[Rfam]
The family of this 54-nucleotide RNA sequence from Delphinapterus leucas is "Editing element of GABA-3 exon 9". A reference for the family is Ohlson et al. (2007), "Editing modifies the GABA(A) receptor subunit alpha3", RNA. The match comes from Rfam's covariance-model search (62 bits). Taxonomically the source falls in Delphinapterus (Eukaryota, Vertebrata, Amniota, Theria). By type it is a cis-regulatory element. Pairs were carried over by alignment from the consensus structure, which is taken from published work.
RNA sequence: AAAGUGGCUUAUGCGAAGGCCAUGGACUGGUUCAUAGCCGUGUGCUACACUUUU
Numbered sequence: 001a002a003a004g005u006g007g008c009u010u011a012u013g014c015g016a017a018g019g020c021c022a023u024g025g026a027c028u029g030g031u032u033c034a035u036a037g038c039c040g041u042g043u044g045c046u047a048c049a050c051u052u053u054u
Stems, first nucleotide, its partner, number of pairs: 001054003006051002010047002013045002016041001018039003022035005